[Rfam]
The record is a 67-nucleotide RNA from Bombyx mori, which matches "mir-2774 microRNA precursor family" in Rfam.
The literature on the family includes a 2010 paper in BMC Genomics by Liu et al., "MicroRNAs of Bombyx mori identified by Solexa sequencing".
The family's consensus secondary structure was predicted with RNAalifold.

RNA sequence: CAAACAACCGGACCGUCAGUCUACCGAGUAAUAACACCCGUUUGGUGGAAAAUGUUCCUUUCGUUAU
Numbered sequence: 001c002a003a004a005c006a007a008c009c010g011g012a013c014c015g016u017c018a019g020u021c022u023a024c025c026g027a028g029u030a031a032u033a034a035c036a037c038c039c040g041u042u043u044g045g046u047g048g049a050a051a052a053u054g055u056u057c058c059u060u061u062c063g064u065u066a067u
Stems, first nucleotide, its partner, number of pairs: 004064002010058003015053002020049010
Dot-bracket structure: ...((....(((..((...((((((((((..........))))))))))..))..)))....))...
Description: Rfam links the family to the GO terms miRNA-mediated post-transcriptional gene silencing and RISC complex.